Description
Rfam assigns this 309-nucleotide sequence from Gossypium australe to the family "Plant signal recognition particle RNA". The source organism's lineage runs through Eukaryota, Streptophyta, Tracheophyta, Malvaceae and Gossypium. Rfam classes the family as a non-coding RNA gene.
[Rfam]
RNA sequence: GCCGAACUUGGUAACACGAGCUUGUAACCUGAGUGGGGGCUUUAAGGUGAUGGAAUGCGAGUGUUUGGCUUCGCUGAGUUGGAUCUCGGGUGGUUUAACUCUGGCUUGCCCGUUUCAAGUUGAGAGUUGAGCGAAGGGGCUUGAGUGUAAACUCUGAGUCUCGUGGUUCCUAAAGUGGAGGGUAUUACAUGAGGCUGGUUUCACAGAGUAGCAAAGACCUCUCUCUCUUGACAGUGGAAGGAUAACAAGCUUGAUCCACUCCGAUCCCAUACAUGACCCAGCGAUCUAACCGACUGGACCAUCAUCUUU
Numbered sequence: 001g002c003c004g005a006a007c008u009u010g011g012u013a014a015c016a017c018g019a020g021c022u023u024g025u026a027a028c029c030u031g032a033g034u035g036g037g038g039g040c041u042u043u044a045a046g047g048u049g050a051u052g053g054a055a056u057g058c059g060a061g062u063g064u065u066u067g068g069c070u071u072c073g074c075u076g077a078g079u080u081g082g083a084u085c086u087c088g089g090g091u092g093g094u095u096u097a098a099c100u101c102u103g104g105c106u107u108g109c110c111c112g113u114u115u116c117a118a119g120u121u122g123a124g125a126g127u128u129g130a131g132c133g134a135a136g137g138g139g140c141u142u143g144a145g146u147g148u149a150a151a152c153u154c155u156g157a158g159u160c161u162c163g164u165g166g167u168u169c170c171u172a173a174a175g176u177g178g179a180g181g182g183u184a185u186u187a188c189a190u191g192a193g194g195c196u197g198g199u200u201u202c203a204c205a206g207a208g209u210a211g212c213a214a215a216g217a218c219c220u221c222u223c224u225c226u227c228u229u230g231a232c233a234g235u236g237g238a239a240g241g242a243u244a245a246c247a248a249g250c251u252u253g254a255u256c257c258a259c260u261c262c263g264a265u266c267c268c269a270u271a272c273a274u275g276a277c278c279c280a281g282c283g284a285u286c287u288a289a290c291c292g293a294c295u296g297g298a299c300c301a302u303c304a305u306c307u308u309u
Stems, first nucleotide, its partner, number of pairs: 001040003004023002007020004028037003044308010056296002059294001063290003067286002071284006078277003081267005088260002091258003096254001101253001103251006110241002113239005119232008129169004134164001136162008144153003170175001177222005186215001190211001195206003